[Rfam]
RNA sequence: CAACAAAAUGGCGAUGGAGCUCGCUGUAAGUGCCAAUAGGCUGAUGGCUCCUAUCCGGUG
Numbered sequence: 001c002a003a004c005a006a007a008a009u010g011g012c013g014a015u016g017g018a019g020c021u022c023g024c025u026g027u028a029a030g031u032g033c034c035a036a037u038a039g040g041c042u043g044a045u046g047g048c049u050c051c052u053a054u055c056c057g058g059u060g
Base pairs, nucleotide, nucleotide: 010025011024012023013022016051017050018049019048020047021046032041033040034039